RNA sequence: ACCACGUACUUACCUGCUGUAUAGUAGGCAAAAUACGUGUGUUUUGGCUACUAUAUAGUAGGUAACUACGUGGUUU
Numbered sequence: 001a002c003c004a005c006g007u008a009c010u011u012a013c014c015u016g017c018u019g020u021a022u023a024g025u026a027g028g029c030a031a032a033a034u035a036c037g038u039g040u041g042u043u044u045u046g047g048c049u050a051c052u053a054u055a056u057a058g059u060a061g062g063u064a065a066c067u068a069c070g071u072g073g074u075u076u
Stems, first nucleotide, its partner, number of pairs: 001074008010065006017058011029046003033042003